[Rfam]
Nucleotides: 075
Base pairs, nucleotide, nucleotide: 001075002074003073004072005071
Number, partner (000 for none) and nucleotide at each position: 001075g002074g003073c004072u005071c006000u007000g008000u009000g010000a011000u012000u013000g014000u015000g016000g017000c018000c019000a020000a021000u022000u023000a024000c025000a026000u027000g028000a029000c030000a031000a032000u033000c034000u035000a036000u037000a038000u039000g040000c041000u042000g043000a044000c045000c046000u047000c048000a049000g050000u051000u052000u053000g054000a055000u056000g057000a058000a059000a060000a061000g062000c063000u064000a065000c066000u067000a068000u069000g070000a071005g072004a073003g074002c075001u